Annotation: A member of the RNA family "S10-Clostridia ribosomal protein leader" from Bacillaceae bacterium SAS-127, 102 nucleotides long. By type it is a cis-regulatory leader. Pairs were carried over by alignment from the consensus structure, which is taken from published work. The literature on the family includes a 2020 paper in BMC Microbiol by Eckert and Weinberg, "Discovery of 20 novel ribosomal leader candidates in bacteria and archaea".
RNA sequence: UGACAGCGAUGAUGUGGAAGGUUGCUGACACACCCGGCCGCUUUGCCAUGGCGCGUGUCGUUAGGAUAUUUCCACGGAGAAUGUCUAUUAUCAAAUAGGCGA
Numbered sequence: 001u002g003a004c005a006g007c008g009a010u011g012a013u014g015u016g017g018a019a020g021g022u023u024g025c026u027g028a029c030a031c032a033c034c035c036g037g038c039c040g041c042u043u044u045g046c047c048a049u050g051g052c053g054c055g056u057g058u059c060g061u062u063a064g065g066a067u068a069u070u071u072c073c074a075c076g077g078a079g080a081a082u083g084u085c086u087a088u089u090a091u092c093a094a095a096u097a098g099g100c101g102a
Base pairs, nucleotide, nucleotide: 014075015074016073019071020070021069025064026063027062028061029060082101083100084099085098088095089094